[Rfam]
RNA sequence: CCUUCCGUGCCUCCAGCACCACGUGUCUGGGCCAUGUGAGCAAGGUCACAUGGGCCCGAUGUGGUGCUGGGGGCGGCAGGGCUC
Number, nucleotide and partner (000 for none) at each position: 001c000002c000003u000004u081005c080006c079007g077008u075009g074010c000011c072012u071013c070014c069015a068016g067017c066018a065019c064020c063021a062022c061023g000024u000025g060026u059027c058028u000029g057030g056031g055032c054033c053034a000035u052036g051037u050038g049039a000040g046041c045042a000043a000044g000045g041046u040047c000048a000049c038050a037051u036052g035053g033054g032055c031056c030057c029058g027059a026060u025061g022062u021063g020064g019065u018066g017067c016068u015069g014070g013071g012072g011073g000074c009075g008076g000077c007078a000079g006080g005081g004082c000083u000084c000